Record summary
Shown here is a 63-nucleotide RNA sequence from Microvirga tunisiensis, a member of the family "terC RNA". The organism belongs to Microvirga, within Bacteria. The match comes from Rfam's covariance-model search (52 bits). The base pairs follow the family's consensus structure, which is taken from published work. By type it is a cis-regulatory element.
RNA sequence: ACCCCGAUCCGGGCCCCUCUGACGCGAGCCGUGCCGGCCCUUGCGUGAUGUCGGAUCCUUCCC
Numbered sequence: 001a002c003c004c005c006g007a008u009c010c011g012g013g014c015c016c017c018u019c020u021g022a023c024g025c026g027a028g029c030c031g032u033g034c035c036g037g038c039c040c041u042u043g044c045g046u047g048a049u050g051u052c053g054g055a056u057c058c059u060u061c062c063c
Base pairs, nucleotide, nucleotide: 006057007056008055009054010053011052012051022046023045024044025043026042027041028040